[Rfam]
RNA: Purine riboswitch aptamer
Organism: Bacillus sp. 165
RNA sequence: AACAUAACAGCCAAAAAUACUCAUAUAAUUUUGGAAAUAUGAUCUAUAAGUUUCUAGCAGACUACCGUAAAUUAUACUUUUAUAUGUGUUUGUUUAUUCUUAUA
Numbered sequence: 001a002a003c004a005u006a007a008c009a010g011c012c013a014a015a016a017a018u019a020c021u022c023a024u025a026u027a028a029u030u031u032u033g034g035a036a037a038u039a040u041g042a043u044c045u046a047u048a049a050g051u052u053u054c055u056a057g058c059a060g061a062c063u064a065c066c067g068u069a070a071a072u073u074a075u076a077c078u079u080u081u082a083u084a085u086g087u088g089u090u091u092g093u094u095u096a097u098u099c100u101u102a103u104a
Base pairs, nucleotide, nucleotide: 019089020088022086023085024084025083029049030048032046033045034044035043059079060078061075064072